[Rfam]
RNA sequence: UACCAAGAAUUUCCUCGGCAGUUAAUUGCAGCCGGUUUUUGAAUUCUUCGACAGUUAACUGCCGAAGGGGCAA
Numbered sequence: 001u002a003c004c005a006a007g008a009a010u011u012u013c014c015u016c017g018g019c020a021g022u023u024a025a026u027u028g029c030a031g032c033c034g035g036u037u038u039u040u041g042a043a044u045u046c047u048u049c050g051a052c053a054g055u056u057a058a059c060u061g062c063c064g065a066a067g068g069g070g071c072a073a
Stems, first nucleotide, its partner, number of pairs: 012069002015066001016064013
RNA: MIR2629 microRNA precursor family
Organism: Medicago truncatula